[Rfam]
RNA: Bacterial RNase P class A
RNA sequence: CGAGUUAGCCGGACGGUCGCAUGAAAUAUUUGAGGAAAGUCCGAGCAUCACAGGGCAUGGGUGCCGGGUAACUCCCGGUGAAGGCGACUUCAAGGACAGUGCAACAGAAAAAAACCGCCGCAUUUGCGGUAAGGAUGGAAAGGCGAGGUAAGAGCUCACCCGCAAUUUGGCAACAAUGCGCGAUGUAAACCCCACUCGAUGCAAGAUCGGGAGCAUAAAAAGUGGCCCGCAAGCUCCCCACAUCGCUUGAGGCGUGCAGAAAUGUACGUCCUAGAUAGAUGACCGUUCAAGACAGAACUCGGCUUACAGACUAAUCUCGCAUA
Number, nucleotide and partner (000 for none) at each position: 001c319002g318003a317004g316005u314006u313007a312008g311009c000010c309011g307012g287013a286014c285015g284016g283017u282018c281019g000020c032021a031022u000023g029024a000025a000026a000027u000028a000029u023030u000031u021032g020033a000034g000035g000036a000037a305038a304039g303040u000041c302042c301043g300044a299045g298046c201047a200048u199049c198050a000051c000052a000053g228054g227055g226056c225057a000058u000059g197060g196061g195062u194063g193064c078065c077066g076067g075068g074069u000070a000071a000072c000073u000074c068075c067076c066077g065078g064079u093080g091081a090082a089083g088084g000085c000086g000087a000088c083089u082090u081091c080092a000093a079094g192095g191096a000097c000098a000099g190100u189101g186102c185103a184104a000105c000106a000107g000108a000109a000110a000111a000112a000113a000114a000115c134116c133117g130118c129119c128120g127121c126122a000123u000124u000125u000126g121127c120128g119129g118130u117131a000132a000133g116134g115135a000136u000137g000138g000139a000140a000141a000142g160143g159144c000145g157146a156147g155148g000149u000150a000151a000152g000153a000154g000155c147156u146157c145158a000159c143160c142161c000162g181163c180164a000165a000166u000167u176168u175169g174170g000171c000172a000173a000174c169175a168176a167177u000178g000179c000180g163181c162182g000183a000184u103185g102186u101187a000188a000189a100190c099191c095192c094193c063194a062195c061196u060197c059198g049199a048200u047201g046202c000203a000204a000205g244206a243207u242208c000209g238210g237211g236212a235213g234214c233215a000216u000217a000218a000219a000220a000221a000222g230223u229224g000225g056226c055227c054228c053229g223230c222231a000232a000233g214234c213235u212236c211237c210238c209239c000240a000241c000242a207243u206244c205245g000246c000247u000248u000249g000250a000251g270252g269253c268254g267255u266256g265257c264258a263259g000260a000261a000262a000263u258264g257265u256266a255267c254268g253269u252270c251271c000272u000273a000274g000275a000276u000277a000278g000279a000280u000281g018282a017283c016284c015285g014286u013287u012288c000289a000290a000291g000292a000293c000294a000295g000296a000297a000298c045299u044300c043301g042302g041303c039304u038305u037306a000307c011308a000309g010310a000311c008312u007313a006314a005315u000316c004317u003318c002319g001320c000321a000322u000323a000